Mammalian CPEB3 ribozyme: a 78-nucleotide RNA from Alligator mississippiensis. The match comes from Rfam's covariance-model search (57 bits). The base pairs follow the family's consensus structure, which is taken from published work.

RNA sequence: AAAUUAUCAUAAUGGCCAUAGCAGAAACAUUCACACUGUGGCCCCUGUCAGAUUCAAAUGAAUCUGCUAAAUUUUGCU
Numbered sequence: 001a002a003a004u005u006a007u008c009a010u011a012a013u014g015g016c017c018a019u020a021g022c023a024g025a026a027a028c029a030u031u032c033a034c035a036c037u038g039u040g041g042c043c044c045c046u047g048u049c050a051g052a053u054u055c056a057a058a059u060g061a062a063u064c065u066g067c068u069a070a071a072u073u074u075u076g077c078u
Stems, first nucleotide, its partner, number of pairs: 014043004020078007027039003049066007